[Rfam]
RNA sequence: ACCGGGAGAGCGCGCCGCACGGCGCCGCCGAAGGGGUAUCACCCGCAAACUCUCAGGCAGAAGGACCGGU
Numbered sequence: 001a002c003c004g005g006g007a008g009a010g011c012g013c014g015c016c017g018c019a020c021g022g023c024g025c026c027g028c029c030g031a032a033g034g035g036g037u038a039u040c041a042c043c044c045g046c047a048a049a050c051u052c053u054c055a056g057g058c059a060g061a062a063g064g065a066c067c068g069g070u
Stems, first nucleotide, its partner, number of pairs: 001070005012025004027058003030054002034052003040045001

A member of the RNA family "Glycine riboswitch aptamer" from Chitinasiproducens palmae, 70 nucleotides long. Pairs were carried over by alignment from the consensus structure.